Shown here is a 63-nucleotide RNA sequence from Crypturellus soui, a member of the family "Small nucleolar RNA SNORD75". It is annotated as a C/D-box small nucleolar RNA. The family has 5 seed sequences and 767 matches in Rfam 15.1. Its family is annotated with nucleolus and RNA processing in the Gene Ontology. The match comes from Rfam's covariance-model search (64 bits).
RNA sequence: AGCCUCUGAUGUACAUUAAGAGUAGUGGACAGAAGGGAUUUCUGAAAGCUCCAUACUGAGGCU
Numbered sequence: 001a002g003c004c005u006c007u008g009a010u011g012u013a014c015a016u017u018a019a020g021a022g023u024a025g026u027g028g029a030c031a032g033a034a035g036g037g038a039u040u041u042c043u044g045a046a047a048g049c050u051c052c053a054u055a056c057u058g059a060g061g062c063u
Base pairs, nucleotide, nucleotide: 001063002062003061004060